[Rfam]
RNA: mir-2970 microRNA precursor family
RNA sequence: AUUGCUGUAGACAGUCAGAAGUUGGUCUGGCGUGAACAUAAAUUCUCAGAUCACCUCUUGGCUGUGCGCAGCAUCUAGGG
Numbered sequence: 001a002u003u004g005c006u007g008u009a010g011a012c013a014g015u016c017a018g019a020a021g022u023u024g025g026u027c028u029g030g031c032g033u034g035a036a037c038a039u040a041a042a043u044u045c046u047c048a049g050a051u052c053a054c055c056u057c058u059u060g061g062c063u064g065u066g067c068g069c070a071g072c073a074u075c076u077a078g079g080g
Base pairs, nucleotide, nucleotide: 003073004072005071006070007069008068011065012064013063014062015061016060017059018058020056021055023053024052025051026050027049028048029047030046